[Rfam]
RNA sequence: UAUCUAGCGUAAGCGCCUGAGCCUUAGCAGUAGCUUGAGGCUGACGAGGUGGGGGUUUAUCGAUUAUCGGCGGAUGCCCUCCAGCCAUUAGGGGUGGCUGUAAACCCUCUUUGAAAACGGCCGAGCAAUCGGGCGGACAAAAUAGGGGUACCCUAGUUU
Numbered sequence: 001u002a003u004c005u006a007g008c009g010u011a012a013g014c015g016c017c018u019g020a021g022c023c024u025u026a027g028c029a030g031u032a033g034c035u036u037g038a039g040g041c042u043g044a045c046g047a048g049g050u051g052g053g054g055g056u057u058u059a060u061c062g063a064u065u066a067u068c069g070g071c072g073g074a075u076g077c078c079c080u081c082c083a084g085c086c087a088u089u090a091g092g093g094g095u096g097g098c099u100g101u102a103a104a105c106c107c108u109c110u111u112u113g114a115a116a117a118c119g120g121c122c123g124a125g126c127a128a129u130c131g132g133g134c135g136g137a138c139a140a141a142a143u144a145g146g147g148g149u150a151c152c153c154u155a156g157u158u159u
Stems, first nucleotide, its partner, number of pairs: 020042008028033001051081005060070004082100006104149004109145002118135002121132004